Rfam assigns this 129-nucleotide RNA to the family "Small nucleolar RNA SNORA27". By type it is an H/ACA-box small nucleolar RNA. The base pairs follow the family's consensus structure. From the family's description: ACA27 is a member of the H/ACA class of snoRNA that guide the sites of modification of uridines to pseudouridines.
[Rfam]
RNA sequence: ACCCCCCCUUUCACUUUGCCAAUUGGACUUAAUGUCUUCAUUGGCCAUUCAAGUGGGGCAAAGGAAAUAACCUUUUAAAACUCAGGCAAACUUAAGUGUUUGUCUUGUAACCUGUCAGGGGAAACAUUA
Numbered sequence: 001a002c003c004c005c006c007c008c009u010u011u012c013a014c015u016u017u018g019c020c021a022a023u024u025g026g027a028c029u030u031a032a033u034g035u036c037u038u039c040a041u042u043g044g045c046c047a048u049u050c051a052a053g054u055g056g057g058g059c060a061a062a063g064g065a066a067a068u069a070a071c072c073u074u075u076u077a078a079a080a081c082u083c084a085g086g087c088a089a090a091c092u093u094a095a096g097u098g099u100u101u102g103u104c105u106u107g108u109a110a111c112c113u114g115u116c117a118g119g120g121g122a123a124a125c126a127u128u129a
Stems, first nucleotide, its partner, number of pairs: 033060005041052004071121005083107001084105008